[Rfam]
RNA sequence: AGAAAAACGAAGAUAGGGAUAAGUACUUUUUUCAUACCUUAUAUAGCGAACUGAGGACGGUGGAAGCUCAGAAUAAGGAGAGAAUGGGAAUAUCACCCUGGAGUUCCUCGCUGAAUAAUAAAGUAAGCGCAGGCGUGUAUUCGCGUUAAGAAUAUAAAGAGGAUUGCUAUAUGUAGUAGUCUACUAGGGUGGUACCGCGGGAGACCUUCUCGUCCCUUUU
Numbered sequence: 001a002g003a004a005a006a007a008c009g010a011a012g013a014u015a016g017g018g019a020u021a022a023g024u025a026c027u028u029u030u031u032u033c034a035u036a037c038c039u040u041a042u043a044u045a046g047c048g049a050a051c052u053g054a055g056g057a058c059g060g061u062g063g064a065a066g067c068u069c070a071g072a073a074u075a076a077g078g079a080g081a082g083a084a085u086g087g088g089a090a091u092a093u094c095a096c097c098c099u100g101g102a103g104u105u106c107c108u109c110g111c112u113g114a115a116u117a118a119u120a121a122a123g124u125a126a127g128c129g130c131a132g133g134c135g136u137g138u139a140u141u142c143g144c145g146u147u148a149a150g151a152a153u154a155u156a157a158a159g160a161g162g163a164u165u166g167c168u169a170u171a172u173g174u175a176g177u178a179g180u181c182u183a184c185u186a187g188g189g190u191g192g193u194a195c196c197g198c199g200g201g202a203g204a205c206c207u208u209c210u211c212g213u214c215c216c217u218u219u220u
Stems, first nucleotide, its partner, number of pairs: 007104002015099004026087002029084003039076003051071005107132002109129004134145003162181007186217004197213005
T-box leader: a 220-nucleotide RNA sequence. Rfam classes the family as a cis-regulatory leader. From the family's description: Uncharged tRNA acts as the effector for transcription antitermination of genes in the T-box leader family.